[Rfam]
RNA sequence: GUCAUCUGUGUAGAUGGUGUUCAGUACCAGGAACAGGACUUGUCUUCUGUGUAGAUGGUGUUCAGUACCAGGGACAAGUUCGUUCAUCU
Numbered sequence: 001g002u003c004a005u006c007u008g009u010g011u012a013g014a015u016g017g018u019g020u021u022c023a024g025u026a027c028c029a030g031g032a033a034c035a036g037g038a039c040u041u042g043u044c045u046u047c048u049g050u051g052u053a054g055a056u057g058g059u060g061u062u063c064a065g066u067a068c069c070a071g072g073g074a075c076a077a078g079u080u081c082g083u084u085c086a087u088c089u
Stems, first nucleotide, its partner, number of pairs: 001080001003078001005076001007074001015070007023062007031050001033048001035046004
RNA: mir-2060 microRNA precursor family